[Rfam]
RNA sequence: UGGGAGAUUGAUACUCGGACAGAGAGCAGCCCUGCUCUGCCUGACACUAUAUCUCCCUAUAGUAACCCUGCCUUCUGAUGACCGGGACGAAAUGAGAGAAAUCGUAACGGACAGAUACGAGGCAGACAAAC
Numbered sequence: 001u002g003g004g005a006g007a008u009u010g011a012u013a014c015u016c017g018g019a020c021a022g023a024g025a026g027c028a029g030c031c032c033u034g035c036u037c038u039g040c041c042u043g044a045c046a047c048u049a050u051a052u053c054u055c056c057c058u059a060u061a062g063u064a065a066c067c068c069u070g071c072c073u074u075c076u077g078a079u080g081a082c083c084g085g086g087a088c089g090a091a092a093u094g095a096g097a098g099a100a101a102u103c104g105u106a107a108c109g110g111a112c113a114g115a116u117a118c119g120a121g122g123c124a125g126a127c128a129a130a131c
Base pairs, nucleotide, nucleotide: 002057003056004055005054006053007052015044016043017042018041022037023036024035068125069124070123071122072121073120074119082110083109084108087105088104089103090102

Notes: This 131-nucleotide RNA from Xenopus tropicalis belongs to the Rfam family "Small Cajal body specific RNA 8". By type it is a small Cajal body RNA. The literature on the family includes a 2002 paper in EMBO J by Darzacq et al., "Cajal body-specific small nuclear RNAs: a novel class of 2'-O-methylation and pseudouridylation guide RNAs". The family has 22 seed sequences and 955 matches in Rfam 15.1. scaRNAs are a specific class of small nuclear RNAs which localise to the Cajal bodies and guide the modification of RNA polymerase II transcribed spliceosomal RNAs U1, U2, U4, U5 and U12. U92 belong to the H/ACA box class of guide RNAs as it has the predicted hairpin-hinge-hairpin-tail structure, conserved H/ACA-box motifs and is found associated with GAR1. It scores 128 bits against the family's covariance model.